[Rfam]
RNA sequence: CCAUGGUGGUAGUUGGGGACAGCCCCACGGUGGUGGCUGG
Numbered sequence: 001c002c003a004u005g006g007u008g009g010u011a012g013u014u015g016g017g018g019a020c021a022g023c024c025c026c027a028c029g030g031u032g033g034u035g036g037c038u039g040g
Stems, first nucleotide, its partner, number of pairs: 001030002004027003

The record is a 40-nucleotide sequence, which matches "Prion pseudoknot" in Rfam. On this family, see Barrette et al., Nucleic Acids Res 2001: "Pseudoknots in prion protein mRNAs confirmed by comparative sequence analysis and pattern searching". The family's consensus secondary structure is taken from published work. By type it is a cis-regulatory element. This family represents a predicted pseudoknot structure found in prion protein mRNA. It has been suggested that the family has a possible effect in prion protein translation.